The family of this 500-nucleotide sequence from Phytohabitans houttuyneae is "Saccharopolyspora sRNA 350". Gene Ontology term of the family: regulation of secondary metabolite biosynthetic process. The family's RNA type in Rfam is antisense RNA. NCBI's taxonomy places the organism under Bacteria, Actinomycetota, Micromonosporales, Micromonosporaceae, Phytohabitans. It scores 201 bits against the family's covariance model. The family has 2 seed sequences and 1,170 matches in Rfam 15.1.
[Rfam]
RNA sequence: UUGACGCCGAAGUCCCAGGUCCGUUCGCCGCCGGCGAGCACCUGGUCGCCGAAGUGGUCGCCGCCGGCGAGCGUGCCCAGCACGGUCGGGUCGCCGUACCGGCCGGCGCCGAGCCGGCUCAGCUUGCCGUGCGCCACGAGGUAGACGUGCUCGGCGGGCUGUCCCGCGGUGACGAUGACCUCGCCCGGCGCGUACUCGCACUGCUCGAAGCGGUCGGCGAGCGCGGCCAGCACACCGUCGUCGGUAAGCCCGCGCAGCAGCGGCAGCUCGCGCAGCUCCUGCGGUACCACCCGCACACGGGCGCCGGUGUUGGUGAAGCUCACCCGCCCGUCGCCGAGGGUCAGGGUCAGGCGGCGGUUGACGCGGUACGCGCCGCCCGGCGCCUCCUCCCACGGCAGCAUGCGCAGCAGCCAGCGCGGCGAGAUGCCCUGCAUCUGCGGCACGGACUUGGUCGUCGUCGCGAGGUUGCGCGCCGCCGUCGCGCUCAGGGACUGGUUCGG
Numbered sequence: 001u002u003g004a005c006g007c008c009g010a011a012g013u014c015c016c017a018g019g020u021c022c023g024u025u026c027g028c029c030g031c032c033g034g035c036g037a038g039c040a041c042c043u044g045g046u047c048g049c050c051g052a053a054g055u056g057g058u059c060g061c062c063g064c065c066g067g068c069g070a071g072c073g074u075g076c077c078c079a080g081c082a083c084g085g086u087c088g089g090g091u092c093g094c095c096g097u098a099c100c101g102g103c104c105g106g107c108g109c110c111g112a113g114c115c116g117g118c119u120c121a122g123c124u125u126g127c128c129g130u131g132c133g134c135c136a137c138g139a140g141g142u143a144g145a146c147g148u149g150c151u152c153g154g155c156g157g158g159c160u161g162u163c164c165c166g167c168g169g170u171g172a173c174g175a176u177g178a179c180c181u182c183g184c185c186c187g188g189c190g191c192g193u194a195c196u197c198g199c200a201c202u203g204c205u206c207g208a209a210g211c212g213g214u215c216g217g218c219g220a221g222c223g224c225g226g227c228c229a230g231c232a233c234a235c236c237g238u239c240g241u242c243g244g245u246a247a248g249c250c251c252g253c254g255c256a257g258c259a260g261c262g263g264c265a266g267c268u269c270g271c272g273c274a275g276c277u278c279c280u281g282c283g284g285u286a287c288c289a290c291c292c293g294c295a296c297a298c299g300g301g302c303g304c305c306g307g308u309g310u311u312g313g314u315g316a317a318g319c320u321c322a323c324c325c326g327c328c329c330g331u332c333g334c335c336g337a338g339g340g341u342c343a344g345g346g347u348c349a350g351g352c353g354g355c356g357g358u359u360g361a362c363g364c365g366g367u368a369c370g371c372g373c374c375g376c377c378c379g380g381c382g383c384c385u386c387c388u389c390c391c392a393c394g395g396c397a398g399c400a401u402g403c404g405c406a407g408c409a410g411c412c413a414g415c416g417c418g419g420c421g422a423g424a425u426g427c428c429c430u431g432c433a434u435c436u437g438c439g440g441c442a443c444g445g446a447c448u449u450g451g452u453c454g455u456c457g458u459c460g461c462g463a464g465g466u467u468g469c470g471c472g473c474c475g476c477c478g479u480c481g482c483g484c485u486c487a488g489g490g491a492c493u494g495g496u497u498c499g500g
Base pairs, nucleotide, nucleotide: 006390009387011385012384014382016380018328019327025322026318029315035313037311038310039309040308041307042306045305047303048302049301050300051298054233055232058229060227061226062225063224064223065111066110067109068108075103077102078101080099082097083096084095085094086093117222118221119220120219123216127212130209131206133204134203138199140197143196144195148192149191153189155187156186157185158184159183162177165174166173236293237292240290241289243287249283251281252280254278256277257276258275260271261270262269330341331340332339353377354376355375356374357373362370363369391431392430394428395427396426397425399423401421403418404417405416407415437476438475439474440473443470444469446467447465448464449463451461452460486500488498